The record is a 133-nucleotide RNA from Crocuta crocuta, which matches "Small nucleolar RNA SNORA71" in Rfam. The literature on the family includes a 1997 paper in Genes Dev by Ganot et al., "The family of box ACA small nucleolar RNAs is defined by an evolutionarily conserved secondary structure and ubiquitous sequence elements essential for RNA accumulation". The members of this family belong to the H/ACA class of snoRNAs which bind a number of proteins (including dyskerin, Gar1p and Nop10p) to form snoRNP complexes. This class of snoRNAs are thought to guide the sites of modification of uridines to pseudouridines by forming direct base pairing interactions with substrate RNAs. This family includes U71 (SNORA71), ACA39 (SNORA39) and ACA60 (SNORA60). U71 and ACA60 are predicted to guide the pseudouridylation of U406 and U1004 in 18S rRNA respectively. It is annotated as an H/ACA-box small nucleolar RNA. Pairs were carried over by alignment from the consensus structure, which was predicted with PFOLD. The family has 40 seed sequences and 1,805 matches in Rfam 15.1.

RNA sequence: ACCUGCAUUCGAAAGUGAUCACGGGCUGCCUGUGCCCUGGUCAUUGAUAGUGCAGGGAGAGGACUUGCAGAAAGCACUUCCCCGUGUUUGGAGGGCCCACCCCAUCCCUUCCGAACCCUGGAGCUUUCCCACA
Number, nucleotide and partner (000 for none) at each position: 001a000002c056003c055004u054005g053006c052007a051008u050009u049010c000011g000012a000013a000014a045015g044016u043017g042018a041019u040020c039021a038022c000023g037024g036025g035026c034027u000028g000029c000030c000031u000032g000033u000034g026035c025036c024037c023038u021039g020040g019041u018042c017043a016044u015045u014046g000047a000048u000049a009050g008051u007052g006053c005054a004055g003056g002057g000058a000059g000060a000061g000062g000063a000064c000065u000066u000067g130068c000069a000070g128071a127072a126073a125074g124075c123076a000077c000078u000079u000080c000081c000082c000083c000084g000085u000086g116087u115088u114089u113090g112091g110092a109093g108094g107095g106096c000097c000098c000099a000100c000101c000102c000103c000104a000105u000106c095107c094108c093109u092110u091111c000112c090113g089114a088115a087116c086117c000118c000119u000120g000121g000122a000123g075124c074125u073126u072127u071128c070129c000130c067131a000132c000133a000